[Rfam]
RNA sequence: AAGCAGGAAAGUUAUAAUAUAGCUGUGUGGUGCUGUAUUAUCGUUCCCCCUGCUUAAAGAAAAAUGUUCCUUCUAUCCGUACCUGCUUUGUUCCAUGGCAGGUAGGGACGCUGGGCUUCAUACAU
Numbered sequence: 001a002a003g004c005a006g007g008a009a010a011g012u013u014a015u016a017a018u019a020u021a022g023c024u025g026u027g028u029g030g031u032g033c034u035g036u037a038u039u040a041u042c043g044u045u046c047c048c049c050c051u052g053c054u055u056a057a058a059g060a061a062a063a064a065u066g067u068u069c070c071u072u073c074u075a076u077c078c079g080u081a082c083c084u085g086c087u088u089u090g091u092u093c094c095a096u097g098g099c100a101g102g103u104a105g106g107g108a109c110g111c112u113g114g115g116c117u118u119c120a121u122a123c124a125u
Stems, first nucleotide, its partner, number of pairs: 003053005014041010078106001080104002083101004
Shown here is a 125-nucleotide RNA from Haliaeetus albicilla, a member of the family "Small nucleolar RNA SNORA63".
A search with the family's covariance model found it, with a score of 111 bits.
Rfam 15.1 lists 1,279 matches to the family in 601 species.
E3 belongs to the H/ACA class of snoRNAs and is involved in the processing of eukaryotic pre-rRNA and has regions of complementarity to 18S rRNA. E3 is encoded in introns in the gene for protein synthesis initiation factor 4AII.